This 79-nucleotide sequence from Pristimantibacillus lignocellulolyticus belongs to the Rfam family "ZMP/ZTP riboswitch aptamer (pfl RNA motif)". For this family Rfam cites "Parallel Discovery Strategies Provide a Basis for Riboswitch Ligand Design" (Tran et al., Cell Chem Biol, 2020). The match comes from Rfam's covariance-model search (62 bits). Rfam 15.1 lists 3,295 matches to the family in 2,545 species.
RNA sequence: UUUGGUAUGUGUGACUGGCGAAACGUGGAGAACCACGAGGAAGCACAUAUUUCAUACGCCGUUCGCCUGGGCAAAGUAU
Numbered sequence: 001u002u003u004g005g006u007a008u009g010u011g012u013g014a015c016u017g018g019c020g021a022a023a024c025g026u027g028g029a030g031a032a033c034c035a036c037g038a039g040g041a042a043g044c045a046c047a048u049a050u051u052u053c054a055u056a057c058g059c060c061g062u063u064c065g066c067c068u069g070g071g072c073a074a075a076g077u078a079u
Stems, first nucleotide, its partner, number of pairs: 004051009015040002017067005025036004058072003